[Rfam]
Shown here is a 91-nucleotide sequence from Alkalicoccus halolimnae, a member of the family "pan motif". A search with the family's covariance model found it, with a score of 56 bits. The base pairs follow the family's consensus structure, which is taken from published work.
RNA sequence: UGGGCGGUAUCCUGUAAAGGAACCGUACUGAAUAAAUAGAACACAGAAGUAAAUGUCUGCUCUGAUCUGAAUGUCAGACAGGGACAGAAGG
Numbered sequence: 001u002g003g004g005c006g007g008u009a010u011c012c013u014g015u016a017a018a019g020g021a022a023c024c025g026u027a028c029u030g031a032a033u034a035a036a037u038a039g040a041a042c043a044c045a046g047a048a049g050u051a052a053a054u055g056u057c058u059g060c061u062c063u064g065a066u067c068u069g070a071a072u073g074u075c076a077g078a079c080a081g082g083g084a085c086a087g088a089a090g091g
Base pairs, nucleotide, nucleotide: 001030002029003028004026005025006024007023008022010021011020057087058086059085060083061082062081063080064079066078067077068076

Lineage of the source: Bacteria > Bacillati > Bacilli > Caryophanales > Alkalicoccus.
Rfam classes the family as a cis-regulatory element.